[Rfam]
The family of this 65-nucleotide RNA from Pseudomonas putida is "Pseudomonas sRNA P26".
It is one of the family's seed sequences.
By type it is a non-coding RNA gene.
Lineage of the source: Bacteria > Pseudomonadati > Pseudomonadales > Pseudomonadaceae > Pseudomonas putida.
The family's consensus secondary structure was predicted with RNAalifold.
From the family's description: This small RNA (sRNA) was computationally identified in the genome of the opportunistic pathogen Pseudomonas aeruginosa and its expression verified by northern blot analysis. P26 is conserved across many Gammaproteobacteria species and appears to be consistently located between the DNA directed RNA polymerase (beta subunit) and 50S ribosomal protein L7/L12 genes.
RNA sequence: GACUGUGCGAUGCCAGCCUGAGCGUUGAGCGAAGGCUGAUGGCUGGUGGCUUAUGCCACCGGCCU
Numbered sequence: 001g002a003c004u005g006u007g008c009g010a011u012g013c014c015a016g017c018c019u020g021a022g023c024g025u026u027g028a029g030c031g032a033a034g035g036c037u038g039a040u041g042g043c044u045g046g047u048g049g050c051u052u053a054u055g056c057c058a059c060c061g062g063c064c065u
Stems, first nucleotide, its partner, number of pairs: 014038005022030002041064010